Source information
The family of this 102-nucleotide sequence from Prodigiosinella confusarubida is "Gammaprotebacteria rimP leader". Pairs were carried over by alignment from the consensus structure, which is taken from published work. Taxonomically the source falls in Prodigiosinella (Bacteria, Pseudomonadati, Enterobacterales, Pectobacteriaceae). The family's RNA type in Rfam is cis-regulatory leader.
RNA sequence: GCUGUAUAGGCGGUAUAUAGGGUCCAGUUACUAAAAGCCUCGAUAUAUCGGGGUUUUUUGUUAUUUGACAGCAGAAUUACUGGGCUAUUAAGCCCUUUUUUU
Numbered sequence: 001g002c003u004g005u006a007u008a009g010g011c012g013g014u015a016u017a018u019a020g021g022g023u024c025c026a027g028u029u030a031c032u033a034a035a036a037g038c039c040u041c042g043a044u045a046u047a048u049c050g051g052g053g054u055u056u057u058u059u060g061u062u063a064u065u066u067g068a069c070a071g072c073a074g075a076a077u078u079a080c081u082g083g084g085c086u087a088u089u090a091a092g093c094c095c096u097u098u099u100u101u102u
Stems, first nucleotide, its partner, number of pairs: 034057009082095004